Annotation:
Rfam assigns this 135-nucleotide RNA sequence from Geotrypetes seraphini to the family "Small nucleolar RNA SNORA64/SNORA10 family". This family belongs to the H/ACA class of small nucleolar RNAs (snoRNAs) which act as guides in the the modification of uridines to pseudouridines. This family includes the human snoRNAs U64 and ACA10 and mouse MBI-29. For this family Rfam cites "Nucleolar localization signals of box H/ACA small nucleolar RNAs" (Narayanan et al., EMBO J, 1999). Its Rfam clan is "SNORA64 clan". Its family is annotated with RNA processing and nucleolus in the Gene Ontology.
RNA sequence: AUUCUCUCAGCUCUGCUCAGCUGCACUUGAUUAGGUAGUGUAGUUGUCGUUUACAGGGAGAAAGAGAAAUGAGUUUCGUUUGCACGACAGAUUGACCUAAAGUGGUCUUCCUGUUCCCUUUGAAACUCUACAGCA
Numbered sequence: 001a002u003u004c005u006c007u008c009a010g011c012u013c014u015g016c017u018c019a020g021c022u023g024c025a026c027u028u029g030a031u032u033a034g035g036u037a038g039u040g041u042a043g044u045u046g047u048c049g050u051u052u053a054c055a056g057g058g059a060g061a062a063a064g065a066g067a068a069a070u071g072a073g074u075u076u077c078g079u080u081u082g083c084a085c086g087a088c089a090g091a092u093u094g095a096c097c098u099a100a101a102g103u104g105g106u107c108u109u110c111c112u113g114u115u116c117c118c119u120u121u122g123a124a125a126c127u128c129u130a131c132a133g134c135a
Stems, first nucleotide, its partner, number of pairs: 002066004007061002011058005019045008074125005082116001089112002094107004